[Rfam]
RNA sequence: AGAGGCCCUCCGGGGCUGAGGUGGAAUGCUUGCCUCGUCGCCGCGGUGAUGAAGCAAGCAUUCCGCCAGGCCGCUCACACUACCUGC
Numbered sequence: 001a002g003a004g005g006c007c008c009u010c011c012g013g014g015g016c017u018g019a020g021g022u023g024g025a026a027u028g029c030u031u032g033c034c035u036c037g038u039c040g041c042c043g044c045g046g047u048g049a050u051g052a053a054g055c056a057a058g059c060a061u062u063c064c065g066c067c068a069g070g071c072c073g074c075u076c077a078c079a080c081u082a083c084c085u086g087c
Stems, first nucleotide, its partner, number of pairs: 004084002012074001014072004020067014037050005